Small nucleolar RNA SNORA51: a 132-nucleotide RNA sequence from Castor canadensis. Gene Ontology terms of the family: RNA processing and nucleolus. ACA51 is a member of the H/ACA class of snoRNA that guide the sites of modification of uridines to pseudouridines. Taxonomically the source falls in Castor (Eukaryota, Vertebrata, Euarchontoglires, Glires). A search with the family's covariance model found it, with a score of 119 bits. Pairs were carried over by alignment from the consensus structure, which was predicted with PFOLD.
RNA sequence: GAUCUCCUGGUGCUUACCAAAGGCUGUGUUCUUACAUUGACUGUAUAGAAAGAGAGGGGAAGAAAAUAUACCCCAUAUACAACUCAGUCCAGGCCCUGUGCCUGGUCUGUAUUGUGAAUUGGGAAGACAUGG
Numbered sequence: 001g002a003u004c005u006c007c008u009g010g011u012g013c014u015u016a017c018c019a020a021a022g023g024c025u026g027u028g029u030u031c032u033u034a035c036a037u038u039g040a041c042u043g044u045a046u047a048g049a050a051a052g053a054g055a056g057g058g059g060a061a062g063a064a065a066a067u068a069u070a071c072c073c074c075a076u077a078u079a080c081a082a083c084u085c086a087g088u089c090c091a092g093g094c095c096c097u098g099u100g101c102c103u104g105g106u107c108u109g110u111a112u113u114g115u116g117a118a119u120u121g122g123g124a125a126g127a128c129a130u131g132g
Base pairs, nucleotide, nucleotide: 003059004058005057006056007054008053021042022041026037027036028035029034072123073122074121075119076118085109086108087107089105090104091103092102093101094100